This 105-nucleotide RNA sequence from Prunus yedoensis belongs to the Rfam family "Small nucleolar RNA Z107/R87".
The literature on the family includes a 2001 paper in J Mol Biol by Barneche et al., "Identification of 66 box C/D snoRNAs in Arabidopsis thaliana: extensive gene duplications generated multiple isoforms predicting new ribosomal RNA 2'-O-methylation sites".

RNA sequence: GAUGGCGGUGAUGACCCAAUGAAAUUCAAGCUCAACAGACCGGAAUGCAGGCUUCUCUUUCUUAGAGAAGUUUGCGUGUCGACAACCCCGCUGAACUGAGCUAUC
Numbered sequence: 001g002a003u004g005g006c007g008g009u010g011a012u013g014a015c016c017c018a019a020u021g022a023a024a025u026u027c028a029a030g031c032u033c034a035a036c037a038g039a040c041c042g043g044a045a046u047g048c049a050g051g052c053u054u055c056u057c058u059u060u061c062u063u064a065g066a067g068a069a070g071u072u073u074g075c076g077u078g079u080c081g082a083c084a085a086c087c088c089c090g091c092u093g094a095a096c097u098g099a100g101c102u103a104u105c
Base pairs, nucleotide, nucleotide: 001105002104003103004102005101006100
Taxonomically the source falls in Prunus yedoensis (Eukaryota, Embryophyta, eudicotyledons, Prunus).
Rfam 15.1 lists 783 matches to the family in 221 species.
The match comes from Rfam's covariance-model search (90 bits).